The family of this 144-nucleotide RNA from Anaerosphaera aminiphila is "glmS glucosamine-6-phosphate activated ribozyme aptamer".
RNA sequence: AAAAAAUCUACAGCGCCAGGUCCUUUGGGAUGACGAGGAUUGGAGUUAUCGAAAUAUUCGGCGGAUGCUCCAAAGGUUCCACAGCCUAAGUUCCUUAACAAAACAUACAAGAAAUUGUAUAACAAAGCAGGUUCAGUGGAUCUC
Numbered sequence: 001a002a003a004a005a006a007u008c009u010a011c012a013g014c015g016c017c018a019g020g021u022c023c024u025u026u027g028g029g030a031u032g033a034c035g036a037g038g039a040u041u042g043g044a045g046u047u048a049u050c051g052a053a054a055u056a057u058u059c060g061g062c063g064g065a066u067g068c069u070c071c072a073a074a075g076g077u078u079c080c081a082c083a084g085c086c087u088a089a090g091u092u093c094c095u096u097a098a099c100a101a102a103a104c105a106u107a108c109a110a111g112a113a114a115u116u117g118u119a120u121a122a123c124a125a126a127g128c129a130g131g132u133u134c135a136g137u138g139g140a141u142c143u144c
Stems, first nucleotide, its partner, number of pairs: 020031004040073005049061004074087005090134001093131003105120006

NCBI's taxonomy places the organism under Bacteria, Bacillati, Bacillota, Tissierellia, Anaerosphaera aminiphila.